Shown here is a 102-nucleotide sequence from Ureibacillus terrenus, a member of the family "SAM riboswitch aptamer (S box leader)". The organism belongs to Ureibacillus, within Bacteria. The match comes from Rfam's covariance-model search (89 bits).
Nucleotides: 102
Base pairs, nucleotide, nucleotide: 003100004099005098006097007096008095013043014042015041016040017039021032022031023030026079027078028077029076044071045070046069047068049067050066051063052062053061054060075094080091081090082089083088
Number, partner (000 for none) and nucleotide at each position: 001000c002000a003100c004099u005098u006097a007096u008095c009000a010000a011000g012000a013043g014042a015041a016040g017039u018000g019000g020000a021032g022031g023030g024000a025000a026079c027078u028077g029076g030023c031022c032021c033000a034000a035000g036000g037000a038000a039017g040016c041015u042014u043013c044071a045070g046069c047068a048000a049067c050066c051063g052062c053061u054060a055000g056000c057000c058000a059000u060054u061053a062052g063051c064000a065000a066050g067049g068047u069046g070045c071044u072000a073000a074000a075094u076029c077028c078027a079026g080091c081090g082089g083088c084000a085000a086000u087000u088083g089082c090081c091080g092000a093000a094075a095008g096007a097006u098005a099004a100003g101000g102000u